[Rfam]
RNA sequence: GGGAAACGGGGAGGGGCCUGGGGCUGUGAGCCACCCCAAGCCCUAGGAAACAAGGGCUCA
Numbered sequence: 001g002g003g004a005a006a007c008g009g010g011g012a013g014g015g016g017c018c019u020g021g022g023g024c025u026g027u028g029a030g031c032c033a034c035c036c037c038a039a040g041c042c043c044u045a046g047g048a049a050a051c052a053a054g055g056g057c058u059c060a
Stems, first nucleotide, its partner, number of pairs: 014044003018040002021037003028059005
Description: The record is a 60-nucleotide sequence from Dipodomys ordii, which matches "Ma3 gene ribosomal frameshift signal" in Rfam. On this family, see Wills et al., J Biol Chem 2006: "A functional -1 ribosomal frameshift signal in the human paraneoplastic Ma3 gene". By type it is a frameshift element. Gene Ontology term of the family: translational frameshifting. NCBI's taxonomy places the organism under Eukaryota, Metazoa, Chordata, Vertebrata, Dipodomys.